[Rfam]
RNA sequence: GAAAAUUAGUGGCAAACCUGCCGAAAGGCAGGGGCGCAAAGCCAAGGGCCCAAGAAGGCCCAAGGGGCAACGAAUUCUAUGGCAGCCGUUUGCAGCA
Numbered sequence: 001g002a003a004a005a006u007u008a009g010u011g012g013c014a015a016a017c018c019u020g021c022c023g024a025a026a027g028g029c030a031g032g033g034g035c036g037c038a039a040a041g042c043c044a045a046g047g048g049c050c051c052a053a054g055a056a057g058g059c060c061c062a063a064g065g066g067g068c069a070a071c072g073a074a075u076u077c078u079a080u081g082g083c084a085g086c087c088g089u090u091u092g093c094a095g096c097a
Base pairs, nucleotide, nucleotide: 012037013036017032018031019030020029021028022027040091041090043088046087047086048083049082050081056076057075
Dot-bracket structure: ...........((...((((((....))))))...))..((.(..(((((.....((.................))....)))..))).))......